[Rfam]
RNA: skipping-rope RNA
RNA sequence: AAUAGUUGACGAGCAGGAAAGGCACCCUGCGCUCCUUUUUUAGGAACCUGAUAUGAUGGAUACGCCGCCCAUCCAAUUCUU
Dot-bracket structure: ((.(((((....(((((...[[[..))))).(((((.....))))....)....(((((....]]]..)))))))))).))